[Rfam]
RNA sequence: AUAUUGUCGACAACCCUAUAAAUCGAAAAAAAUAUCGAUUUAGAGGGUUGUCAAAAA
Dot-bracket structure: ......(.(((((((((.(((((((..........))))))).))))))))).)...
Numbered sequence: 001a002u003a004u005u006g007u008c009g010a011c012a013a014c015c016c017u018a019u020a021a022a023u024c025g026a027a028a029a030a031a032a033u034a035u036c037g038a039u040u041u042a043g044a045g046g047g048u049u050g051u052c053a054a055a056a057a
Stems, first nucleotide, its partner, number of pairs: 007054001009052009019042007